[Rfam]
RNA sequence: CUCUGGAGAGAGGCGCGCGAGGCGUCCGCCGAAGGGAUAGCGAUCUCAGGCGAAGGGACAGAG
Numbered sequence: 001c002u003c004u005g006g007a008g009a010g011a012g013g014c015g016c017g018c019g020a021g022g023c024g025u026c027c028g029c030c031g032a033a034g035g036g037a038u039a040g041c042g043a044u045c046u047c048a049g050g051c052g053a054a055g056g057g058a059c060a061g062a063g
Base pairs, nucleotide, nucleotide: 001063002062003061004060005059012026013025014024015023028051029050030049031047032046035045036044
RNA: Glycine riboswitch aptamer